[Rfam]
RNA sequence: AGUAUUGAAAUGAUGAGCUUUUCAUGUCUCUUCUCUGACUAUUUAACUGGAGACAUAUAAAGAUCUCUGAUCCUAAUAUU
Number, nucleotide and partner (000 for none) at each position: 001a080002g079003u078004a077005u076006u000007g000008a000009a000010a000011u000012g000013a000014u000015g000016a000017g000018c000019u000020u000021u000022u000023c000024a000025u000026g000027u000028c000029u000030c000031u000032u000033c000034u000035c000036u000037g000038a000039c000040u000041a000042u000043u000044u000045a000046a000047c000048u000049g000050g000051a000052g000053a000054c000055a000056u000057a000058u000059a000060a000061a000062g000063a000064u000065c000066u000067c000068u000069g000070a000071u000072c000073c000074u000075a000076a005077u004078a003079u002080u001
Small nucleolar RNA SNORD111: an 80-nucleotide sequence from Sinocyclocheilus rhinocerous. Rfam links the family to the GO terms RNA processing and nucleolus. The family's RNA type in Rfam is C/D-box small nucleolar RNA. On this family, see Galardi et al., Mol Cell Biol 2002: "Purified box C/D snoRNPs are able to reproduce site-specific 2'-O-methylation of target RNA in vitro".